This 101-nucleotide sequence from Paenibacillus abyssi belongs to the Rfam family "Purine riboswitch aptamer". The family's consensus secondary structure is taken from published work. On this family, see Mandal et al., Cell 2003: "Riboswitches Control Fundamental Biochemical Pathways in Bacillus subtilis and Other Bacteria".
RNA sequence: CAUUUCGAUCAUUUGCCUAUUCGUAUAUCCUUGGCGAUAAGGGUCAAGGGUUUCUACUAAGGAACCGAUAAUUCCUGGCUACGAGAGGUGCGGGUUUGCCG
Numbered sequence: 001c002a003u004u005u006c007g008a009u010c011a012u013u014u015g016c017c018u019a020u021u022c023g024u025a026u027a028u029c030c031u032u033g034g035c036g037a038u039a040a041g042g043g044u045c046a047a048g049g050g051u052u053u054c055u056a057c058u059a060a061g062g063a064a065c066c067g068a069u070a071a072u073u074c075c076u077g078g079c080u081a082c083g084a085g086a087g088g089u090g091c092g093g094g095u096u097u098g099c100c101g
Stems, first nucleotide, its partner, number of pairs: 018087001020085006029049007060076005
The source organism's lineage runs through Bacteria, Bacillota, Bacilli, Caryophanales and Paenibacillus. Rfam links the family to the GO term purine nucleobase biosynthetic process.